[Rfam]
The record is a 456-nucleotide RNA from Aleadryas rufinucha, which matches "Vertebrate telomerase RNA" in Rfam. The source organism's lineage runs through Eukaryota, Archelosauria, Aves, Neoaves and Aleadryas. For this family Rfam cites "Analysis of the structure of human telomerase RNA in vivo" (Antal et al., Nucleic Acids Res, 2002). Pairs were carried over by alignment from the consensus structure, which is taken from published work. The family has 37 seed sequences and 523 matches in Rfam 15.1. The family is grouped with related families in Rfam's "Telomerase clan".
RNA sequence: CGUGCCGGGGUGGGCAGGCAGGCCCUGCGGUUAACUAACCCUAAUGGCGGCUGCACCCUUCACACCCGCCCGCUGUUUUACUCGCUGACUUUCAGCGGGCAAAGGGAGCGGCCCAAAGAGGGGGGAGGGGGAGAGGGAAGAGGUCCGGCCUCAAAAAAAGCCAGCGAGGGGGAUCCGCACCCCGGCCCACCCUGGGGUCCCUGUCCCUCCUCCGCAACGGGAGAUGCUCCCGCCGUCGCCCUUCGUAGAGGCCGUGGUCGGCAGGCUCAGCGCCCGUACCGCCGCGAAGAGUUCGUCUCUGUCAGCCUUGGCGACGGCCGGGACCGGAGGGCCGGCCCACCCACCUUGGGCAGCCGGGGGACCCCAGCAGAACAAAACGGGCGCGGCGCCGCCGGGCGCUGAGCAGCCGCGGCUCCCUCAGAAGUGGGAUGCGUGGCCGGCGCCGCGCCGACACCC
Numbered sequence: 001c002g003u004g005c006c007g008g009g010g011u012g013g014g015c016a017g018g019c020a021g022g023c024c025c026u027g028c029g030g031u032u033a034a035c036u037a038a039c040c041c042u043a044a045u046g047g048c049g050g051c052u053g054c055a056c057c058c059u060u061c062a063c064a065c066c067c068g069c070c071c072g073c074u075g076u077u078u079u080a081c082u083c084g085c086u087g088a089c090u091u092u093c094a095g096c097g098g099g100c101a102a103a104g105g106g107a108g109c110g111g112c113c114c115a116a117a118g119a120g121g122g123g124g125g126a127g128g129g130g131g132a133g134a135g136g137g138a139a140g141a142g143g144u145c146c147g148g149c150c151u152c153a154a155a156a157a158a159a160g161c162c163a164g165c166g167a168g169g170g171g172g173a174u175c176c177g178c179a180c181c182c183c184g185g186c187c188c189a190c191c192c193u194g195g196g197g198u199c200c201c202u203g204u205c206c207c208u209c210c211u212c213c214g215c216a217a218c219g220g221g222a223g224a225u226g227c228u229c230c231c232g233c234c235g236u237c238g239c240c241c242u243u244c245g246u247a248g249a250g251g252c253c254g255u256g257g258u259c260g261g262c263a264g265g266c267u268c269a270g271c272g273c274c275c276g277u278a279c280c281g282c283c284g285c286g287a288a289g290a291g292u293u294c295g296u297c298u299c300u301g302u303c304a305g306c307c308u309u310g311g312c313g314a315c316g317g318c319c320g321g322g323a324c325c326g327g328a329g330g331g332c333c334g335g336c337c338c339a340c341c342c343a344c345c346u347u348g349g350g351c352a353g354c355c356g357g358g359g360g361a362c363c364c365c366a367g368c369a370g371a372a373c374a375a376a377a378c379g380g381g382c383g384c385g386g387c388g389c390c391g392c393c394g395g396g397c398g399c400u401g402a403g404c405a406g407c408c409g410c411g412g413c414u415c416c417c418u419c420a421g422a423a424g425u426g427g428g429a430u431g432c433g434u435g436g437c438c439g440g441c442g443c444c445g446c447g448c449c450g451a452c453a454c455c456c
Base pairs, nucleotide, nucleotide: 005185006184007183008182009181010180011179012178018174023172024171025170026169056106057105058104059103060102068100069099070098071097072096073095074094075093084165085164086163087162089160090158091157092156192367193366194365195364196363197362198361207329208328209327210326228323229322230321231320232319235315236314237313238312239311253286254285255284256283257282259281260280261279264274265273266272288300289299290298291297381448382447383446384445385444386443387442388441389440390439407436408435409434410433411432414429415428416427417426